[Rfam]
RNA sequence: UGCAGGUCACCGCCUAAUCGGACGCUCUCAUGAGCGAACGAGCCGGGAACCCAGGUUUCGACUGGGGUGAAUCCCGCCGGACCGCGUACAGCGCGACUCGGUGGGUAGGGCACUUCCGAGCCCGAACCCGUCAGCUAACCCGGCCGGUGGACGAACGGAAGAAAC
Numbered sequence: 001u002g003c004a005g006g007u008c009a010c011c012g013c014c015u016a017a018u019c020g021g022a023c024g025c026u027c028u029c030a031u032g033a034g035c036g037a038a039c040g041a042g043c044c045g046g047g048a049a050c051c052c053a054g055g056u057u058u059c060g061a062c063u064g065g066g067g068u069g070a071a072u073c074c075c076g077c078c079g080g081a082c083c084g085c086g087u088a089c090a091g092c093g094c095g096a097c098u099c100g101g102u103g104g105g106u107a108g109g110g111c112a113c114u115u116c117c118g119a120g121c122c123c124g125a126a127c128c129c130g131u132c133a134g135c136u137a138a139c140c141c142g143g144c145c146g147g148u149g150g151a152c153g154a155a156c157g158g159a160a161g162a163a164a165c
Stems, first nucleotide, its partner, number of pairs: 011149004018041003042144006052064002065129003073105008108123004
c-di-AMP riboswitch aptamer (ydaO/yuaA leader): a 165-nucleotide RNA sequence from Antrihabitans auranticaus. Lineage of the source: Bacteria > Bacillati > Actinomycetota > Nocardiaceae > Antrihabitans.